[Rfam]
Nucleotides: 173
Base pairs, nucleotide, nucleotide: 025042026041027040043085044084045083046082047081048080049079050078051077052076060075061074062073063072064071090172091171
Number, partner (000 for none) and nucleotide at each position: 001000u002000c003000a004000g005000c006000c007000c008000g009000c010000u011000u012000u013000g014000g015000g016000g017000a018000g019000u020000a021000g022000c023000c024000g025042a026041c027040a028000u029000c030000u031000u032000u033000u034000g035000c036000a037000a038000g039000a040027u041026g042025u043085g044084c045083c046082u047081g048080u049079g050078u051077c052076a053000a054000c055000a056000u057000a058000c059000u060075g061074g062073g063072u064071g065000c066000c067000c068000a069000a070000u071064c072063a073062c074061c075060c076052u077051g078050g079049u080048g081047c082046a083045g084044g085043c086000g087000g088000c089000c090172u091171u092000a093000a094000c095000g096000g097000g098000c099000a100000g101000g102000c103000g104000a105000g106000a107000c108000c109000a110000u111000c112000g113000a114000c115000u116000u117000c118000a119000c120000c121000g122000u123000g124000c125000c126000a127000u128000a129000a130000a131000g132000a133000c134000c135000g136000g137000g138000c139000g140000c141000g142000c143000g144000g145000u146000g147000g148000c149000g150000u151000c152000a153000u154000g155000g156000u157000a158000u159000c160000u161000g162000c163000c164000c165000g166000g167000u168000c169000u170000g171091g172090a173000u

The family of this 173-nucleotide sequence from Gallaecimonas xiamenensis is "Manganese Mn2+ riboswitch aptamer (yybP-ykoY)". Rfam's curators write: This RNA was originally discovered in E. coli during a large scale screen and was named SraF. The family was later found to exist upstream of related families of protein genes in many bacteria, including the the yybP and ykoK genes in B. subtilis. The specific functions of these proteins are unknown, but this structured RNA element may be involved in their genetic regulation as a riboswitch. Lineage of the source: Bacteria > Pseudomonadati > Gammaproteobacteria > Gallaecimonas > Gallaecimonas xiamenensis.